[Rfam]
RNA sequence: AGGUGAGGUAGAGGUUGCGGACAACAAGAGUACCCCGGUGGAGGAACCGGGUUCCGCAGAAGCCGGGGGAAAGGGUUGCCCGCCGAAGUUCAGCCGUUGCCCGGAACGGCUGGGCUGGGCCGUCAUCGAACAGGUGCCGGACUGUCACCCGGUGGCUGCCCUGCUGCCGGGUGGAGCGCUAUCUCACCA
Numbered sequence: 001a002g003g004u005g006a007g008g009u010a011g012a013g014g015u016u017g018c019g020g021a022c023a024a025c026a027a028g029a030g031u032a033c034c035c036c037g038g039u040g041g042a043g044g045a046a047c048c049g050g051g052u053u054c055c056g057c058a059g060a061a062g063c064c065g066g067g068g069g070a071a072a073g074g075g076u077u078g079c080c081c082g083c084c085g086a087a088g089u090u091c092a093g094c095c096g097u098u099g100c101c102c103g104g105a106a107c108g109g110c111u112g113g114g115c116u117g118g119g120c121c122g123u124c125a126u127c128g129a130a131c132a133g134g135u136g137c138c139g140g141a142c143u144g145u146c147a148c149c150c151g152g153u154g155g156c157u158g159c160c161c162u163g164c165u166g167c168c169g170g171g172u173g174g175a176g177c178g179c180u181a182u183c184u185c186a187c188c189a
Stems, first nucleotide, its partner, number of pairs: 006184006017083004022078004033068007087116012117143002120140003124136004145174011
The family of this 189-nucleotide RNA sequence from Desulfofundulus salinus is "Lysine riboswitch aptamer". Taxonomically the source falls in Desulfofundulus (Bacteria, Bacillota, Clostridia, Eubacteriales). Rfam describes the family as follows. Riboswitches are metabolite binding domains within certain messenger RNAs that serve as precision sensors for their corresponding targets. Allosteric rearrangement of mRNA structure is mediated by ligand binding, and this results in modulation of gene expression. This family includes riboswitches that sense lysine in a number of genes involved in lysine metabolism, including lysC.